[Rfam]
Nucleotides: 127
Stems, first nucleotide, its partner, number of pairs: 016094003022088004027083002030080002033077001036074002039071001045057001047055002058068002061065001098121010
Number, partner (000 for none) and nucleotide at each position: 001000c002000a003000u004000g005000a006000a007000u008000u009000u010000u011000u012000u013000g014000c015000u016094g017093u018092u019000u020000u021000c022088c023087u024086u025085a026000a027083c028082u029000u030080u031079c032000u033077u034000c035000u036074u037073u038000u039071u040000u041000a042000c043000c044000u045057u046000g047055c048054u049000c050000u051000g052000a053000u054048g055047g056000g057045a058068a059067g060000u061065g062000g063000u064000u065061c066000u067059u068058u069000g070000u071039a072000c073037g074036a075000a076000a077033a078000c079031g080030a081000u082028a083027g084000a085025u086024a087023a088022g089000a090000c091000u092018a093017a094016u095000g096000a097000c098121a099120a100119a101118g102117c103116c104115u105114c106113c107112c108000a109000g110000c111000u112107g113106g114105g115104a116103g117102g118101c119100u120099u121098u122000g123000u124000c125000a126000u127000u
A member of the RNA family "Phenylalanine leader peptide" from Pantoea sp. Nvir, 127 nucleotides long. Lineage of the source: Bacteria > Pseudomonadota > Enterobacterales > Erwiniaceae > Pantoea. The family's consensus secondary structure was predicted with CMfinder. By type it is a cis-regulatory leader. It scores 63 bits against the family's covariance model. The family has 71 seed sequences and 379 matches in Rfam 15.1. Its family is annotated with cellular amino acid metabolic process in the Gene Ontology.